[Rfam]
RNA sequence: CGAUGCCUCUGGAAAGUGGUGACCUGCUGGUCACCCGCCCAUGGGGAAAGGCGCCUGGUCAGGCGCCGAAUCUCUCAGGCACCCGGCACGGGUCGACGACAGAGGGAGAGGA
Numbered sequence: 001c002g003a004u005g006c007c008u009c010u011g012g013a014a015a016g017u018g019g020u021g022a023c024c025u026g027c028u029g030g031u032c033a034c035c036c037g038c039c040c041a042u043g044g045g046g047a048a049a050g051g052c053g054c055c056u057g058g059u060c061a062g063g064c065g066c067c068g069a070a071u072c073u074c075u076c077a078g079g080c081a082c083c084c085g086g087c088a089c090g091g092g093u094c095g096a097c098g099a100c101a102g103a104g105g106g107a108g109a110g111g112a
Stems, first nucleotide, its partner, number of pairs: 004107001006105006018035004037080003041075001044074003050067007
Shown here is a 112-nucleotide RNA sequence from Mycolicibacterium anyangense, a member of the family "Glycine riboswitch aptamer". The match comes from Rfam's covariance-model search (39 bits).